RNA sequence: UGGUAGAUGCACCCUGAUUGACAUUCCCUAGCUCACCGGUUUGAGCUGGGGAUUUUUUUU
Numbered sequence: 001u002g003g004u005a006g007a008u009g010c011a012c013c014c015u016g017a018u019u020g021a022c023a024u025u026c027c028c029u030a031g032c033u034c035a036c037c038g039g040u041u042u043g044a045g046c047u048g049g050g051g052a053u054u055u056u057u058u059u060u
Stems, first nucleotide, its partner, number of pairs: 002013003025052011
This 60-nucleotide RNA sequence from Symplocastrum torsivum belongs to the Rfam family "Nitrogen stress-induced RNA 1". The match comes from Rfam's covariance-model search (72 bits). The family's RNA type in Rfam is small RNA. The literature on the family includes a 2010 paper in J Mol Biol by Ionescu et al., "Heterocyst-specific transcription of NsiR1, a non-coding RNA encoded in a tandem array of direct repeats in cyanobacteria".